RNA: Bacterial RNase P class A
Organism: Porphyromonas levii
RNA sequence: GGAGUCCAAAAGCUUACCGCUGGUGGCUUGCUGUAUGGCUGUCACGAGAGGAAAGUCCGGGCCACAUAGAGCACCAUACUUCCUAACGGGAAGCUAUCGUGAGGUAGAUUAGCGUAACAGAGAAUAACCGCCAUCUUAGGGUGGUAAGGGUGAAAAGGUGGGGUAAGAGCCCACCGGGCUGGUAGUGAUACGCAGCCGUCAGUACGCAUUAUGGGUGGAAAGGUCAUGUACACCGACGCUGUAGGGCGGCUCGUCCGAUGUCGGGGGGUAGACCGAUAGAGCUAGGGGGUGACUCCUAGAGUAGAUAAAUGGUAGGCAUCCACUCUUCGGGGUGGAGACAGAACCCGGCUUACUGAGGUCUCCUUCU
Numbered sequence: 001g002g003a004g005u006c007c008a009a010a011a012g013c014u015u016a017c018c019g020c021u022g023g024u025g026g027c028u029u030g031c032u033g034u035a036u037g038g039c040u041g042u043c044a045c046g047a048g049a050g051g052a053a054a055g056u057c058c059g060g061g062c063c064a065c066a067u068a069g070a071g072c073a074c075c076a077u078a079c080u081u082c083c084u085a086a087c088g089g090g091a092a093g094c095u096a097u098c099g100u101g102a103g104g105u106a107g108a109u110u111a112g113c114g115u116a117a118c119a120g121a122g123a124a125u126a127a128c129c130g131c132c133a134u135c136u137u138a139g140g141g142u143g144g145u146a147a148g149g150g151u152g153a154a155a156a157g158g159u160g161g162g163g164u165a166a167g168a169g170c171c172c173a174c175c176g177g178g179c180u181g182g183u184a185g186u187g188a189u190a191c192g193c194a195g196c197c198g199u200c201a202g203u204a205c206g207c208a209u210u211a212u213g214g215g216u217g218g219a220a221a222g223g224u225c226a227u228g229u230a231c232a233c234c235g236a237c238g239c240u241g242u243a244g245g246g247c248g249g250c251u252c253g254u255c256c257g258a259u260g261u262c263g264g265g266g267g268g269u270a271g272a273c274c275g276a277u278a279g280a281g282c283u284a285g286g287g288g289g290u291g292a293c294u295c296c297u298a299g300a301g302u303a304g305a306u307a308a309a310u311g312g313u314a315g316g317c318a319u320c321c322a323c324u325c326u327u328c329g330g331g332g333u334g335g336a337g338a339c340a341g342a343a344c345c346c347g348g349c350u351u352a353c354u355g356a357g358g359u360c361u362c363c364u365u366c367u
Stems, first nucleotide, its partner, number of pairs: 001363004006358002010354001012317007020048002023045005053351003057348005062218004069252004074214005079093005094107005108209002112207005128149002130145006157175006176200001177197005182191003222274004233264005244256004282299007